[Rfam]
RNA sequence: CCAAUAAAAAGGGAGCUCCCUUCAGUCCAAGUACAGCAAGUUUAAGGUUCAACCUAGCUCCCGCAUCAUUCACUCGGCUACUGAGCGGAAUCGAACGUUCCUCCGCUCAGUAUUUGGAUGAAUGAGUCGGCAGCAAAUUGAACCCUAUUGCCCCUAUAUUUGGACCGAAGAAAGCUCUCUAUGAAUUAUCA
Numbered sequence: 001c002c003a004a005u006a007a008a009a010a011g012g013g014a015g016c017u018c019c020c021u022u023c024a025g026u027c028c029a030a031g032u033a034c035a036g037c038a039a040g041u042u043u044a045a046g047g048u049u050c051a052a053c054c055u056a057g058c059u060c061c062c063g064c065a066u067c068a069u070u071c072a073c074u075c076g077g078c079u080a081c082u083g084a085g086c087g088g089a090a091u092c093g094a095a096c097g098u099u100c101c102u103c104c105g106c107u108c109a110g111u112a113u114u115u116g117g118a119u120g121a122a123u124g125a126g127u128c129g130g131c132a133g134c135a136a137a138u139u140g141a142a143c144c145c146u147a148u149u150g151c152c153c154c155u156a157u158a159u160u161u162g163g164a165c166c167g168a169a170g171a172a173a174g175c176u177c178u179c180u181a182u183g184a185a186u187u188a189u190c191a
Stems, first nucleotide, its partner, number of pairs: 013177005020170001023167001025165005036154001058133002061130003067124004075116001
A member of the RNA family "MIR159 microRNA precursor family" from Sesamum indicum, 191 nucleotides long. The source organism's lineage runs through Eukaryota, Tracheophyta, Gunneridae, asterids and Sesamum. The family's consensus secondary structure was predicted with WAR.